[Rfam]
The family of this 68-nucleotide sequence from Oryctolagus cuniculus is "Small nucleolar RNA SNORD77". For this family Rfam cites "Guide RNAs with 5' caps and novel box C/D snoRNA-like domains for modification of snRNAs in metazoa" (Tycowski et al., Curr Biol, 2004). It scores 45 bits against the family's covariance model. The family's consensus secondary structure was predicted with RNAalifold. The family has 21 seed sequences and 396 matches in Rfam 15.1. Rfam describes the family as follows. U77 belongs to the C/D family of snoRNAs. It is predicted to guide 2'O-ribose methylation of large 28S rRNA subunit at position A1521. The C/D snoRNAs U44, U47, U74, U75, U76, U78, U79, U80 and U81 share the same host gene as U77 (non-coding). Rfam links the family to the GO terms nucleolus and RNA processing.
RNA sequence: AUACUAUGAUGGUUCCUUAGUUCAGCAGACUGAAUCACAAAGAAAUUUAAUAUUUGCCAAAUUUACCU
Numbered sequence: 001a002u003a004c005u006a007u008g009a010u011g012g013u014u015c016c017u018u019a020g021u022u023c024a025g026c027a028g029a030c031u032g033a034a035u036c037a038c039a040a041a042g043a044a045a046u047u048u049a050a051u052a053u054u055u056g057c058c059a060a061a062u063u064u065a066c067c068u
Base pairs, nucleotide, nucleotide: 002065003064007037008036009035010034013028014027016025043055044054045053046052